The record is a 203-nucleotide RNA from Brachybacterium sp. SGAir0954, which matches "Actinobacteria sRNA Ms_IGR-5" in Rfam. Taxonomically the source falls in Brachybacterium (Bacteria, Actinomycetota, Actinomycetes, Micrococcales). By type it is a small RNA. The match comes from Rfam's covariance-model search (64 bits).

RNA sequence: ACACGGAAAGGAGGUGAUCCGAGGAAUGAUUUCCCAUCGGACAUGUGAGGUGGCUCGCCGCUGAGGCGACCAUCGACUCUGACCCGCAGCAGCGGGCCCCAGAUCGACGGACCGCAGCGAAUACCAGCGAGCUGCCCGGACCCGCAGGGGUCGGCCAUCGUCCAGCCGGCACGCGCACCGCGCACCCUGCGGGUCCGCCCGUG
Dot-bracket structure: ............(..(.(..................................).)..)(((((.(..(.((.(((.............................))).)).)).))))).................(((((((((((((((((((.........))))))..............)))))))))))))......